[Rfam]
RNA sequence: UGCAAGGGGCCCGCCGCGAUCGCCCCGUGAGGCGACAGCCGAAGGAUCGCGUCCACCUCUCCCUCGGGAAGUGAACGCGCCAUG
Number, nucleotide and partner (000 for none) at each position: 001u000002g000003c000004a000005a000006g026007g025008g024009g023010c022011c000012c000013g000014c000015c000016g000017c000018g000019a000020u000021c000022g010023c009024c008025c007026c006027g000028u000029g000030a000031g000032g000033c000034g000035a000036c000037a000038g000039c000040c000041g000042a000043a000044g000045g000046a000047u000048c000049g078050c077051g076052u075053c000054c073055a000056c000057c000058u000059c000060u000061c000062c000063c000064u000065c000066g000067g000068g000069a000070a000071g000072u000073g054074a000075a052076c051077g050078c049079g000080c000081c000082a000083u000084g000
A member of the RNA family "chrB-a RNA" from Caldovatus sediminis, 84 nucleotides long.
Rfam classes the family as a cis-regulatory element.
The organism belongs to Caldovatus, within Bacteria.
It scores 68 bits against the family's covariance model.